[Rfam]
RNA sequence: GCAGACCUACGGGGCUGCUUCACAUUGCGGACCUACGGGGCCGCCACAUACACGGAAGACAGUAA
Numbered sequence: 001g002c003a004g005a006c007c008u009a010c011g012g013g014g015c016u017g018c019u020u021c022a023c024a025u026u027g028c029g030g031a032c033c034u035a036c037g038g039g040g041c042c043g044c045c046a047c048a049u050a051c052a053c054g055g056a057a058g059a060c061a062g063u064a065a
Base pairs, nucleotide, nucleotide: 001018002017003016004015006014007013008012027044028043029042030041032039

This 65-nucleotide sequence belongs to the Rfam family "L2-Alphaproteobacteria ribosomal protein leader". Rfam's curators put it in the seed alignment. The family's RNA type in Rfam is cis-regulatory leader. A reference for the family is Eckert and Weinberg (2020), "Discovery of 20 novel ribosomal leader candidates in bacteria and archaea", BMC Microbiol. The base pairs follow the family's consensus structure, which is taken from published work.